[Rfam]
RNA sequence: ACUGUGGACUAUACUAGAACUUGUUAGUAGCGAAUUACUUGUAAUCGCCAAAGCAUAUAGAAUGAAACAGUAA
Numbered sequence: 001a002c003u004g005u006g007g008a009c010u011a012u013a014c015u016a017g018a019a020c021u022u023g024u025u026a027g028u029a030g031c032g033a034a035u036u037a038c039u040u041g042u043a044a045u046c047g048c049c050a051a052a053g054c055a056u057a058u059a060g061a062a063u064g065a066a067a068c069a070g071u072a073a
Stems, first nucleotide, its partner, number of pairs: 001071005009060005022055003030048003034045002
RNA: RAGATH-18 RNA